[Rfam]
RNA: Eukaryotic large subunit ribosomal RNA, nucleotides 2951 to 3337
RNA sequence: AACCUCGUCGCAAUAGUAAUUAAGCUUAAUACGAGAAGAACCGCUCAUUUAAAUAAUUAGUUUUUGUAACUAUCCGACCGGGUAGUACCGUAAUACUACUAUCUACUAAAUAAUAACUAAACGCCUCUAAAUUAGAAUCUAUACUAGAACGUAACGAUACCUCCCGCACGUAUAAAUAGAUACGAAUAAACUCCGGCUUAGCGUCUUAAUAAGCAAUUCCUCUACUACUCUCGAAGCGAGUAAUAAUAUUUCGCAAAUUAUAAUUUUAGCACGAGCGGGGUUAAAUCCUUUAUAAAUAACUUAGAUAUAUAAAAAGGUCCUAUAAGUAAUAGAGUAGCCUUAUUAUUAUAAUUUACUAAGGGUAAGCCCUUCUUCGCCUCGAUUUCC
Numbered sequence: 001a002a003c004c005u006c007g008u009c010g011c012a013a014u015a016g017u018a019a020u021u022a023a024g025c026u027u028a029a030u031a032c033g034a035g036a037a038g039a040a041c042c043g044c045u046c047a048u049u050u051a052a053a054u055a056a057u058u059a060g061u062u063u064u065u066g067u068a069a070c071u072a073u074c075c076g077a078c079c080g081g082g083u084a085g086u087a088c089c090g091u092a093a094u095a096c097u098a099c100u101a102u103c104u105a106c107u108a109a110a111u112a113a114u115a116a117c118u119a120a121a122c123g124c125c126u127c128u129a130a131a132u133u134a135g136a137a138u139c140u141a142u143a144c145u146a147g148a149a150c151g152u153a154a155c156g157a158u159a160c161c162u163c164c165c166g167c168a169c170g171u172a173u174a175a176a177u178a179g180a181u182a183c184g185a186a187u188a189a190a191c192u193c194c195g196g197c198u199u200a201g202c203g204u205c206u207u208a209a210u211a212a213g214c215a216a217u218u219c220c221u222c223u224a225c226u227a228c229u230c231u232c233g234a235a236g237c238g239a240g241u242a243a244u245a246a247u248a249u250u251u252c253g254c255a256a257a258u259u260a261u262a263a264u265u266u267u268a269g270c271a272c273g274a275g276c277g278g279g280g281u282u283a284a285a286u287c288c289u290u291u292a293u294a295a296a297u298a299a300c301u302u303a304g305a306u307a308u309a310u311a312a313a314a315a316g317g318u319c320c321u322a323u324a325a326g327u328a329a330u331a332g333a334g335u336a337g338c339c340u341u342a343u344u345a346u347u348a349u350a351a352u353u354u355a356c357u358a359a360g361g362g363u364a365a366g367c368c369c370u371u372c373u374u375c376g377c378c379u380c381g382a383u384u385u386c387c
Base pairs, nucleotide, nucleotide: 005157006156007155008154010152011151014146015145016144017143019049021047023045024044025043050105051104053102054101058098059097060096065092066091067090070085071084072083073082074081075080107141108140114134115133116132118130163279164278165277166276167275169273283385284384285383286382287381288304289303310376312374313373316368317367319362320361326356327355328354329353331352334349335348336347337346